[Rfam]
Nucleotides: 059
Base pairs, nucleotide, nucleotide: 003032004031005030006027007026008025009024010023011022012021013020040059041058042057043056044055045054046053
Number, partner (000 for none) and nucleotide at each position: 001000g002000g003032u004031u005030g006027g007026a008025u009024g010023a011022g012021u013020a014000u015000u016000u017000u018000g019000a020013u021012a022011c023010u024009u025008a026007u027006u028000u029000u030005c031004a032003a033000g034000a035000a036000g037000g038000u039000a040059a041058g042057c043056u044055u045054c046053u047000g048000g049000g050000g051000u052000g053046g054045g055044a056043a057042g058041c059040u